chrB-b RNA: a 49-nucleotide RNA sequence from Bradyrhizobium japonicum.

RNA sequence: CGGGGACCCGCGACCUCCCCGUCAGAUGGAUAUCCAUCCAAGUGCUCGC
Numbered sequence: 001c002g003g004g005g006a007c008c009c010g011c012g013a014c015c016u017c018c019c020c021g022u023c024a025g026a027u028g029g030a031u032a033u034c035c036a037u038c039c040a041a042g043u044g045c046u047c048g049c
Base pairs, nucleotide, nucleotide: 001021002020003019004018005017006016010049011048012047013046025038026037027036028035029034
Background
NCBI's taxonomy places the organism under Bacteria, Pseudomonadota, Hyphomicrobiales, Bradyrhizobium, Bradyrhizobium japonicum.